Description
A member of the RNA family "Purine riboswitch aptamer" from Ureibacillus manganicus, 102 nucleotides long.
RNA sequence: ACUAAAAUUUAAUAAAACACUCAUAUAAUGGCGGGGAUAUGGCUCGCAAGUUUCUACCGACUUACCGUAAAUUAGUCGACUAUGAGAGACAAUAUAAAUAGA
Numbered sequence: 001a002c003u004a005a006a007a008u009u010u011a012a013u014a015a016a017a018c019a020c021u022c023a024u025a026u027a028a029u030g031g032c033g034g035g036g037a038u039a040u041g042g043c044u045c046g047c048a049a050g051u052u053u054c055u056a057c058c059g060a061c062u063u064a065c066c067g068u069a070a071a072u073u074a075g076u077c078g079a080c081u082a083u084g085a086g087a088g089a090c091a092a093u094a095u096a097a098a099u100a101g102a
Base pairs, nucleotide, nucleotide: 018088020086021085022084023083024082025081029049031047032046033045034044035043058078059077060076061075062074064072
Taxonomically the source falls in Ureibacillus manganicus (Bacteria, Bacillota, Caryophanaceae, Ureibacillus).